[Rfam]
RNA sequence: UGCUGUUGGGAGACCUUGGUCUGCAUGCUAUCUGUGUGCUUAUUGAAGGGAGUUCAGGGCAGGGUUUCCCCUACAGAG
Numbered sequence: 001u002g003c004u005g006u007u008g009g010g011a012g013a014c015c016u017u018g019g020u021c022u023g024c025a026u027g028c029u030a031u032c033u034g035u036g037u038g039c040u041u042a043u044u045g046a047a048g049g050g051a052g053u054u055c056a057g058g059g060c061a062g063g064g065u066u067u068c069c070c071c072u073a074c075a076g077a078g
Stems, first nucleotide, its partner, number of pairs: 003076004008070011020058004026052001028050002031046002034043003
Record summary
This 78-nucleotide RNA from Octodon degus belongs to the Rfam family "mir-504 microRNA precursor family". Gene Ontology terms of the family: RISC complex and miRNA-mediated post-transcriptional gene silencing. Pairs were carried over by alignment from the consensus structure, which was predicted with RNAalifold.